[Rfam]
RNA sequence: CAUGUUCGCCACGGGAGUCCGGUACGCCGGGCUGAGAGGCGGGCCUGGCCCGCGACCGUUCGCACCUGAUCCGGAUCAUGCCGGCGCAGGGAGGGCACAUCGCCGUCCU
Numbered sequence: 001c002a003u004g005u006u007c008g009c010c011a012c013g014g015g016a017g018u019c020c021g022g023u024a025c026g027c028c029g030g031g032c033u034g035a036g037a038g039g040c041g042g043g044c045c046u047g048g049c050c051c052g053c054g055a056c057c058g059u060u061c062g063c064a065c066c067u068g069a070u071c072c073g074g075a076u077c078a079u080g081c082c083g084g085c086g087c088a089g090g091g092a093g094g095g096c097a098c099a100u101c102g103c104c105g106u107c108c109u
Base pairs, nucleotide, nucleotide: 006097009094010093011059012058013057014056017032018031019030020029021028039053040052041051042050043049065090066089067088068087071084072083073082074081
Overview:
TPP riboswitch aptamer (THI element): a 109-nucleotide sequence from Amycolatopsis antarctica. Lineage of the source: Bacteria > Bacillati > Actinomycetota > Actinomycetes > Amycolatopsis. Rfam describes the family as follows. Vitamin B(1) in its active form thiamin pyrophosphate (TPP) is an essential coenzyme that is synthesised by coupling of pyrimidine and thiazole moieties in bacteria. The previously detected thiamin-regulatory element, thi box was extended, resulting in a new, highly conserved RNA secondary structure, the THI element, which is widely distributed in eubacteria and also occurs in some archaea. Its family is annotated with thiamine pyrophosphate binding in the Gene Ontology. A search with the family's covariance model found it, with a score of 64 bits.